Mammalian CPEB3 ribozyme: a 74-nucleotide sequence from Alligator sinensis.
[Rfam]
RNA sequence: UAGCAAUUUCAUGACCAUAGCAGAAGCGCUCAUGGUAUGGCCUGUCAGAUUUCAACAAAUCUGUGAUUUCUGCU
Numbered sequence: 001u002a003g004c005a006a007u008u009u010c011a012u013g014a015c016c017a018u019a020g021c022a023g024a025a026g027c028g029c030u031c032a033u034g035g036u037a038u039g040g041c042c043u044g045u046c047a048g049a050u051u052u053c054a055a056c057a058a059a060u061c062u063g064u065g066a067u068u069u070c071u072g073c074u
Base pairs, nucleotide, nucleotide: 013042015040016039019074020073021072022071023070024069025068026038028036046063047062048061049060050059051058052057

Record summary
Its family is annotated with RNA nuclease activity in the Gene Ontology.